[Rfam]
RNA: Ribosomal protein L19 leader
RNA sequence: ACGAUGUUCCGCUGCUCGAUAGAUGGCAAGAGCAUUUG
Numbered sequence: 001a002c003g004a005u006g007u008u009c010c011g012c013u014g015c016u017c018g019a020u021a022g023a024u025g026g027c028a029a030g031a032g033c034a035u036u037u038g
Stems, first nucleotide, its partner, number of pairs: 003036007013028004